[Rfam]
RNA sequence: CUCUUAUCAAGAGAGGCAGAGGGACUGGCCCGAUGAAGCCCGGCAACCAACAUUUGUAAAGGUGCCAAUUCCAGCAGAACGCUGUAUGUUCUGGAAGAUAAGGA
Numbered sequence: 001c002u003c004u005u006a007u008c009a010a011g012a013g014a015g016g017c018a019g020a021g022g023g024a025c026u027g028g029c030c031c032g033a034u035g036a037a038g039c040c041c042g043g044c045a046a047c048c049a050a051c052a053u054u055u056g057u058a059a060a061g062g063u064g065c066c067a068a069u070u071c072c073a074g075c076a077g078a079a080c081g082c083u084g085u086a087u088g089u090u091c092u093g094g095a096a097g098a099u100a101a102g103g104a
Stems, first nucleotide, its partner, number of pairs: 002103007013041001015040003021031003025074004042066004047062002050057002070096001075093006
Background
Shown here is a 104-nucleotide sequence from Alkalicoccobacillus porphyridii, a member of the family "SAM riboswitch aptamer (S box leader)". The SAM riboswitch is found upstream of a number of genes which code for proteins involved in methionine or cysteine biosynthesis in Gram-positive bacteria. The SAM riboswitch acts at the level of transcription termination control. The predicted structure consists of a complex stem-loop region followed by a single stem loop terminator region. An alternative and mutually exclusive form involves bases in the 3' segment of helix 1 with those in the 5' region of helix 5 to form a structure termed the anti-terminator form. This entry represents the conserved core of the complex structure involving helices 1-4. It scores 94 bits against the family's covariance model.